[Rfam]
A member of the RNA family "Repression of heat shock gene expression (ROSE) element" from Caulobacter radicis, 96 nucleotides long.
It is annotated as an RNA thermoregulator.
Rfam links the family to the GO terms response to temperature stimulus and regulation of translation.
The base pairs follow the family's consensus structure, which is taken from published work.
About the family: This family represents a 5' UTR cis-regulatory element found in heat shock mRNAs and is known as the ROSE (repression of heat shock gene expression) element. The ROSE element is a negative regulator of heat shock gene expression. The secondary structure is thought to be regulated by temperature. This regulation blocks access to the ribosome binding site under normal conditions. During heat shock however, the structure changes freeing the ribosome binding site and allowing expression to occur.
The source organism's lineage runs through Bacteria, Pseudomonadati, Pseudomonadota, Alphaproteobacteria and Caulobacter.
RNA sequence: CCGGAUGCCGCUCGAGGGUCCGGCAGUCGGGAGGCGUCCGUGCUUCCGGACGCCUCUCAGGUCCAACUUGCUCGUUCGAGGAGAUGGAAAUGAGAA
Number, nucleotide and partner (000 for none) at each position: 001c023002c022003g021004g020005a019006u018007g000008c017009c016010g000011c000012u000013c000014g000015a000016g009017g008018g006019u005020c004021c003022g002023g001024c000025a000026g000027u000028c000029g000030g000031g055032a000033g054034g053035c052036g051037u050038c049039c048040g047041u000042g000043c000044u000045u000046c000047c040048g039049g038050a037051c036052g035053c034054c033055u031056c094057u093058c092059a091060g000061g000062u000063c087064c086065a085066a000067c083068u082069u081070g000071c080072u079073c078074g000075u000076u000077c000078g073079a072080g071081g069082a068083g067084a000085u065086g064087g063088a000089a000090a000091u059092g058093a057094g056095a000096a000